[Rfam]
RNA sequence: CUGGAAUGAUGCGAAAUUAGCCAAAUCAGACAUCUAUGUGCUCCUGCAGGCUUUCUCAUACAAGCUUUCCCUAAUAUUGGUGCUCUUGGUGAAAUUUCCUUUCUUGGGAAAUUUUGCUAAGCACUUUCUUGAGCUUGCAUUUAGAUGCCUUCAGUGGAAGCGCAUAUCUCUGAUGAUAACAGCGAGAUUGGUUGCUUGCUGACCAGA
Numbered sequence: 001c002u003g004g005a006a007u008g009a010u011g012c013g014a015a016a017u018u019a020g021c022c023a024a025a026u027c028a029g030a031c032a033u034c035u036a037u038g039u040g041c042u043c044c045u046g047c048a049g050g051c052u053u054u055c056u057c058a059u060a061c062a063a064g065c066u067u068u069c070c071c072u073a074a075u076a077u078u079g080g081u082g083c084u085c086u087u088g089g090u091g092a093a094a095u096u097u098c099c100u101u102u103c104u105u106g107g108g109a110a111a112u113u114u115u116g117c118u119a120a121g122c123a124c125u126u127u128c129u130u131g132a133g134c135u136u137g138c139a140u141u142u143a144g145a146u147g148c149c150u151u152c153a154g155u156g157g158a159a160g161c162g163c164a165u166a167u168c169u170c171u172g173a174u175g176a177u178a179a180c181a182g183c184g185a186g187a188u189u190g191g192u193u194g195c196u197u198g199c200u201g202a203c204c205a206g207a
Base pairs, nucleotide, nucleotide: 001206002205003204004203

Shown here is a 207-nucleotide RNA sequence from Phoenix dactylifera, a member of the family "small nucleolar RNA snoR127". Lineage of the source: Eukaryota > Streptophytina > Petrosaviidae > commelinids > Phoenix. On this family, see Chen and Wu, Nucleic Acids Res 2009: "Mining small RNA sequencing data: a new approach to identify small nucleolar RNAs in Arabidopsis". It is annotated as a C/D-box small nucleolar RNA. Gene Ontology terms of the family: nucleolus and RNA processing.